[Rfam]
Nucleotides: 052
Stems, first nucleotide, its partner, number of pairs: 003052003007047004015041006023033001
Number, partner (000 for none) and nucleotide at each position: 001000a002000g003052g004051g005050u006000u007047c008046c009045g010044g011000u012000u013000c014000a015041c016040g017039u018038c019037u020036g021000a022000c023033u024000u025000c026000c027000g028000a029000u030000c031000a032000g033023a034000u035000a036020c037019g038018g039017g040016c041015g042000a043000c044010c045009c046008g047007g048000c049000g050005g051004c052003c
A member of the RNA family "L31-Actinobacteria ribosomal protein leader" from Mycobacterium noviomagense, 52 nucleotides long.
On this family, see Eckert and Weinberg, BMC Microbiol 2020: "Discovery of 20 novel ribosomal leader candidates in bacteria and archaea".
By type it is a cis-regulatory leader.